This 146-nucleotide sequence from Lihuaxuella thermophila belongs to the Rfam family "c-di-AMP riboswitch aptamer (ydaO/yuaA leader)". The organism belongs to Lihuaxuella, within Bacteria. Rfam's curators write: This family represents a conserved RNA structure found upstream of the ydaO and yuaA genes in Bacillus subtilis and related genes in other bacteria. A search with the family's covariance model found it, with a score of 103 bits.
[Rfam]
RNA sequence: GCCUGCAAAUCGCUGAAUCCCACCCGAUGGGAACGGGGGAACCAACAUAUGGGGUGAAUCCUAAGGAAGUGUUUGUCUUCCACAGGUAGGGUGACUCUCAACACCCGAAUCCGUCAGCUAACCUCGUAAGCGUUGUGAGAGGGGGA
Numbered sequence: 001g002c003c004u005g006c007a008a009a010u011c012g013c014u015g016a017a018u019c020c021c022a023c024c025c026g027a028u029g030g031g032a033a034c035g036g037g038g039g040a041a042c043c044a045a046c047a048u049a050u051g052g053g054g055u056g057a058a059u060c061c062u063a064a065g066g067a068a069g070u071g072u073u074u075g076u077c078u079u080c081c082a083c084a085g086g087u088a089g090g091g092u093g094a095c096u097c098u099c100a101a102c103a104c105c106c107g108a109a110u111c112c113g114u115c116a117g118c119u120a121a122c123c124u125c126g127u128a129a130g131c132g133u134u135g136u137g138a139g140a141g142g143g144g145g146a
Stems, first nucleotide, its partner, number of pairs: 011132004018032003033127006043051002052112003060086003089106004